[Rfam]
This 553-nucleotide part of an RNA from Porphyromonas macacae belongs to the Rfam family "Bacterial large subunit ribosomal RNA". The base pairs follow the family's consensus structure, which is taken from published work.

RNA sequence: AAGAAAAGGGCAGACGGUGGAUGCCUUGGCUCUCGGAGGCGAUGAAGGACGUGAUAAGCUGCGAAAAGCUGCGGGGAUUGGCACAUACGACUCGAUCCGCAGAUAUCCGAAUGGGGCAACCCAUCCAUAUUAAUAUGGAUACAGUAUAUGAUACUGGGCAAACGUGGGGAACUGAAACAUCUUAGUACCCACAGGAGAAGAAAACAAACGUGAUUCCCUUAGUAGUGGCGAGCGAACGGGGAUUAGCCUAAACCGGUUUUGUUUCGGCAAAGCCGGGGUUAUAGGAGUACCAUAAGAGAUUGCAGCGAUUAUAGGAGAACGUUCUGGAAAGGACGACCAUAGAGCAUGAUAGUUGCGUAUCCGGCAUGAUAGCUUCAGUUGAGGUACCACCUGAGUAGGGCGGGACACGAGAAAUCCUGUCUGAAUUAGCGGGGCCCAUCCCGUAAGGCUAAAUACUCCCGAGAGACCGAUAGUGAACAAGUACCGUGAGGGAAAGGUGAAAAGAACCUCGAACAGAGGAGUGAAAUAGACCCUGAACCCGUCUGCCUACAAG
Numbered sequence: 001a002a003g004a005a006a007a008g009g010g011c012a013g014a015c016g017g018u019g020g021a022u023g024c025c026u027u028g029g030c031u032c033u034c035g036g037a038g039g040c041g042a043u044g045a046a047g048g049a050c051g052u053g054a055u056a057a058g059c060u061g062c063g064a065a066a067a068g069c070u071g072c073g074g075g076g077a078u079u080g081g082c083a084c085a086u087a088c089g090a091c092u093c094g095a096u097c098c099g100c101a102g103a104u105a106u107c108c109g110a111a112u113g114g115g116g117c118a119a120c121c122c123a124u125c126c127a128u129a130u131u132a133a134u135a136u137g138g139a140u141a142c143a144g145u146a147u148a149u150g151a152u153a154c155u156g157g158g159c160a161a162a163c164g165u166g167g168g169g170a171a172c173u174g175a176a177a178c179a180u181c182u183u184a185g186u187a188c189c190c191a192c193a194g195g196a197g198a199a200g201a202a203a204a205c206a207a208a209c210g211u212g213a214u215u216c217c218c219u220u221a222g223u224a225g226u227g228g229c230g231a232g233c234g235a236a237c238g239g240g241g242a243u244u245a246g247c248c249u250a251a252a253c254c255g256g257u258u259u260u261g262u263u264u265c266g267g268c269a270a271a272g273c274c275g276g277g278g279u280u281a282u283a284g285g286a287g288u289a290c291c292a293u294a295a296g297a298g299a300u301u302g303c304a305g306c307g308a309u310u311a312u313a314g315g316a317g318a319a320c321g322u323u324c325u326g327g328a329a330a331g332g333a334c335g336a337c338c339a340u341a342g343a344g345c346a347u348g349a350u351a352g353u354u355g356c357g358u359a360u361c362c363g364g365c366a367u368g369a370u371a372g373c374u375u376c377a378g379u380u381g382a383g384g385u386a387c388c389a390c391c392u393g394a395g396u397a398g399g400g401c402g403g404g405a406c407a408c409g410a411g412a413a414a415u416c417c418u419g420u421c422u423g424a425a426u427u428a429g430c431g432g433g434g435c436c437c438a439u440c441c442c443g444u445a446a447g448g449c450u451a452a453a454u455a456c457u458c459c460c461g462a463g464a465g466a467c468c469g470a471u472a473g474u475g476a477a478c479a480a481g482u483a484c485c486g487u488g489a490g491g492g493a494a495a496g497g498u499g500a501a502a503a504g505a506a507c508c509u510c511g512a513a514c515a516g517a518g519g520a521g522u523g524a525a526a527u528a529g530a531c532c533c534u535g536a537a538c539c540c541g542u543c544u545g546c547c548u549a550c551a552a553g
Stems, first nucleotide, its partner, number of pairs: 008548010023533001024497002028468002030465007037457002039159002047108003050063003069102007078090003113122003123140007142156006163194001164192005174181002204211002214453001215242005225233002245450004253276007283392003288386004300378003304374003308370005314362003320335005338342001344356003398422008429444005484491002507519004